Rfam assigns this 75-nucleotide RNA sequence from Paenibacillus sp. UNC496MF to the family "tRNA". A search with the family's covariance model found it, with a score of 46 bits. The source organism's lineage runs through Bacteria, Bacillati, Bacillota, Bacilli and Paenibacillus.
[Rfam]
RNA sequence: GCGCAGAUGGCGAAGCGGCUUAACGCAGCUGGCUCGCAAGCCGGCCAUUCGGAGGUUCGAAUCCUUCUCUGCGCU
Numbered sequence: 001g002c003g004c005a006g007a008u009g010g011c012g013a014a015g016c017g018g019c020u021u022a023a024c025g026c027a028g029c030u031g032g033c034u035c036g037c038a039a040g041c042c043g044g045c046c047a048u049u050c051g052g053a054g055g056u057u058c059g060a061a062u063c064c065u066u067c068u069c070u071g072c073g074c075u
Stems, first nucleotide, its partner, number of pairs: 001074007010026003028045005051067005